[Rfam]
RNA sequence: GGGAAGUGAUGAUUGGGUUUAAUCUCGCAUUAAAUGCUUGAUGAGCGUUCCGCUCAAACCUUUUUACGACAAUUGGGCGCUCCAAUUUCGAUUUAUCUGAUCCC
Numbered sequence: 001g002g003g004a005a006g007u008g009a010u011g012a013u014u015g016g017g018u019u020u021a022a023u024c025u026c027g028c029a030u031u032a033a034a035u036g037c038u039u040g041a042u043g044a045g046c047g048u049u050c051c052g053c054u055c056a057a058a059c060c061u062u063u064u065u066a067c068g069a070c071a072a073u074u075g076g077g078c079g080c081u082c083c084a085a086u087u088u089c090g091a092u093u094u095a096u097c098u099g100a101u102c103c104c
Stems, first nucleotide, its partner, number of pairs: 001104004014095005024040001027037002043082007061075001064072001

Shown here is a 104-nucleotide sequence from Raphanus sativus, a member of the family "Small nucleolar RNA Z279/snoR105/snoR108".
Lineage of the source: Eukaryota > Embryophyta > Magnoliopsida > eudicotyledons > Raphanus.
This family includes the plant snoRNAs known as Z279, snoR105 and snoR108.
Gene Ontology terms of the family: RNA processing and nucleolus.
Rfam 15.1 lists 906 matches to the family in 223 species.
A reference for the family is Marker et al. (2002), "Experimental RNomics: identification of 140 candidates for small non-messenger RNAs in the plant Arabidopsis thaliana", Curr Biol.